About this RNA: Shown here is a 72-nucleotide sequence from Cnephaeus nilssonii, a member of the family "mir-9193 microRNA precursor family". The source organism's lineage runs through Eukaryota, Eumetazoa, Dipnotetrapodomorpha, Vespertilionidae and Cnephaeus. The family's consensus secondary structure was predicted with RNAalifold. Its family is annotated with RISC complex and miRNA-mediated post-transcriptional gene silencing in the Gene Ontology. It scores 65 bits against the family's covariance model.
RNA sequence: AGGGGGGCGAGGGUCUCUCAGCCAGGAUUGCGAGAGGGUGCAGGCCAGGCCGAGGGACCCCACCGGUGCACG
Numbered sequence: 001a002g003g004g005g006g007g008c009g010a011g012g013g014u015c016u017c018u019c020a021g022c023c024a025g026g027a028u029u030g031c032g033a034g035a036g037g038g039u040g041c042a043g044g045c046c047a048g049g050c051c052g053a054g055g056g057a058c059c060c061c062a063c064c065g066g067u068g069c070a071c072g
Stems, first nucleotide, its partner, number of pairs: 002069001004067001007064001011060009021050003025046002028043005